[Rfam]
RNA sequence: CUGGUCUUGUCGGAGUGCCUCAGUGUGAUUUAUCACCUUGGGCUGAGACCGCAAAGCGGAAUCCGUGGAACCUGAACAGGUUAGAACCUGCGUAGGAAAACAAGCUACAAUUUGCC
Numbered sequence: 001c002u003g004g005u006c007u008u009g010u011c012g013g014a015g016u017g018c019c020u021c022a023g024u025g026u027g028a029u030u031u032a033u034c035a036c037c038u039u040g041g042g043c044u045g046a047g048a049c050c051g052c053a054a055a056g057c058g059g060a061a062u063c064c065g066u067g068g069a070a071c072c073u074g075a076a077c078a079g080g081u082u083a084g085a086a087c088c089u090g091c092g093u094a095g096g097a098a099a100a101c102a103a104g105c106u107a108c109a110a111u112u113u114g115c116c
Stems, first nucleotide, its partner, number of pairs: 006104005011065004016059001017043004050058003071096004077090004
Description: This 116-nucleotide RNA from Ferrimonas aestuarii belongs to the Rfam family "TPP riboswitch aptamer (THI element)". Vitamin B(1) in its active form thiamin pyrophosphate (TPP) is an essential coenzyme that is synthesised by coupling of pyrimidine and thiazole moieties in bacteria. The organism belongs to Ferrimonas, within Bacteria.